[Rfam]
Nucleotides: 105
Base pairs, nucleotide, nucleotide: 001105004102005101006100007099008098013043014042015041016040017039021032022031023030026094027093028092029091044086045085046084047083049082050081051077052076053075090097
Number, partner (000 for none) and nucleotide at each position: 001105c002000g003000a004102c005101c006100a007099u008098c009000c010000c011000g012000a013043g014042c015041g016040g017039c018000u019000g020000a021032g022031a023030g024000a025000u026094c027093u028092g029091g030023c031022u032021c033000a034000c035000u036000g037000a038000c039017g040016c041015c042014g043013c044086a045085g046084c047083a048000a049082c050081c051077c052076u053075g054000g055000c056000c057000u058000a059000u060000g061000c062000a063000u064000c065000g066000a067000u068000g069000c070000g071000g072000c073000g074000a075053c076052a077051g078000a079000a080000g081050g082049g083047u084046g085045c086044u087000a088000c089000u090097g091029c092028c093027a094026g095000g096000c097090c098008g099007a100006u101005g102004g103000a104000g105001g
This 105-nucleotide RNA from Arthrobacter sp. NamB2 belongs to the Rfam family "SAM riboswitch aptamer (S box leader)". The base pairs follow the family's consensus structure, which is taken from published work. The organism belongs to Arthrobacter, within Bacteria. The match comes from Rfam's covariance-model search (52 bits).